[Rfam]
Description: Shown here is a 102-nucleotide sequence from Otolemur garnettii, a member of the family "Y RNA". Pairs were carried over by alignment from the consensus structure, which is taken from published work. The source organism's lineage runs through Eukaryota, Metazoa, Dipnotetrapodomorpha, Tetrapoda and Otolemur.
RNA sequence: GGCUGGUCCAAGUGCAGCAAUGUUUAUAGCUAAUUGAUCACAACCAGCUACAGAUUCCUUUGCUCUGUCUCCCCUUCCACUGUUUCACUUGACUAGCCUUAA
Numbered sequence: 001g002g003c004u005g006g007u008c009c010a011a012g013u014g015c016a017g018c019a020a021u022g023u024u025u026a027u028a029g030c031u032a033a034u035u036g037a038u039c040a041c042a043a044c045c046a047g048c049u050a051c052a053g054a055u056u057c058c059u060u061u062g063c064u065c066u067g068u069c070u071c072c073c074c075u076u077c078c079a080c081u082g083u084u085u086c087a088c089u090u091g092a093c094u095a096g097c098c099u100u101a102a
Base pairs, nucleotide, nucleotide: 001098002097003096004095005094006093007092008091010090011089014086016081017080028064029063030062032060033059